[Rfam]
Nucleotides: 182
Base pairs, nucleotide, nucleotide: 013091014090015089016088029081030080033077034076035075036073037072038071039070040069041068043066044065045064046063047062051059052058107175108174110172111171120161121160122159123158124157125156127154128153129152132145133144135142136141
Number, partner (000 for none) and nucleotide at each position: 001000c002000u003000g004000c005000u006000u007000g008000a009000g010000u011000g012000u013091g014090c015089g016088u017000a018000g019000u020000u021000u022000u023000c024000a025000u026000c027000u028000a029081u030080g031000a032000c033077u034076g035075g036073u037072a038071g039070c040069a041068g042000u043066g044065u045064c046063u047062g048000u049000c050000a051059u052058g053000a054000u055000u056000u057000g058052c059051a060000u061000g062047c063046a064045g065044a066043u067000c068041u069040u070039g071038u072037u073036a074000u075035c076034c077033a078000c079000a080030c081029a082000a083000u084000u085000a086000c087000c088016a089015u090014g091013c092000a093000g094000c095000c096000g097000a098000a099000g100000a101000g102000a103000a104000a105000c106000u107175u108174g109000a110172g111171a112000u113000c114000a115000u116000a117000g118000u119000a120161c121160u122159g123158g124157u125156u126000a127154g128153u129152g130000c131000u132145g133144u134000c135142u136141c137000u138000u139000a140000u141136g142135a143000c144133a145132c146000u147000u148000c149000u150000a151000c152129c153128a154127c155000a156125g157124g158123c159122c160121a161120g162000c163000c164000u165000c166000c167000g168000a169000a170000u171111u172110c173000c174108u175107g176000c177000a178000c179000a180000c181000a182000c
Background:
Rfam assigns this 182-nucleotide sequence from Otolemur garnettii to the family "Small nucleolar RNA SNORA23". It is annotated as an H/ACA-box small nucleolar RNA. It scores 126 bits against the family's covariance model. Taxonomically the source falls in Otolemur (Eukaryota, Craniata, Gnathostomata, Lorisiformes). From the family's description: The members of this family belong to the H/ACA class of snoRNAs which are thought to guide the sites of modification of uridines to pseudouridines. This family includes human snoRNA ACA23 (SNORA23) and mouse snoMBI-1. ACA23 is predicted to guide the pseudouridylation of residue U3737 and U4331 of 28S rRNA.